[Rfam]
Nucleotides: 140
Base pairs, nucleotide, nucleotide: 002060003059004058005057018047019046020045021044022043023042024041025040026039027038028037074132075131076130077129078128079126086117087116088115089114090113
Number, partner (000 for none) and nucleotide at each position: 001000u002060g003059c004058a005057g006000c007000u008000g009000c010000g011000u012000c013000a014000a015000a016000u017000u018047c019046a020045g021044u022043c023042c024041u025040c026039g027038g028037c029000c030000a031000g032000c033000c034000a035000g036000u037028g038027c039026u040025g041024g042023g043022g044021a045020c046019u047018g048000g049000c050000c051000a052000a053000a054000a055000a056000g057005c058004u059003g060002c061000c062000a063000c064000a065000g066000c067000a068000a069000a070000a071000u072000c073000u074132g075131u076130a077129g078128c079126u080000c081000c082000u083000g084000a085000g086117c087116c088115c089114c090113a091000c092000u093000g094000u095000c096000c097000u098000u099000c100000u101000c102000u103000c104000c105000c106000g107000u108000g109000a110000c111000c112000c113090u114089g115088g116087g117086g118000a119000u120000a121000a122000a123000u124000a125000a126079a127000u128078g129077c130076u131075a132074c133000a134000g135000a136000c137000a138000c139000c140000g
Annotation: Rfam assigns this 140-nucleotide RNA from Arenaria interpres to the family "Small nucleolar RNA SNORA5". Clan: SNORA5 clan. By type it is an H/ACA-box small nucleolar RNA. Rfam links the family to the GO terms RNA processing and nucleolus. ACA5 is a member of the H/ACA class of snoRNA that guide the sites of modification of uridines to pseudouridines. It scores 92 bits against the family's covariance model.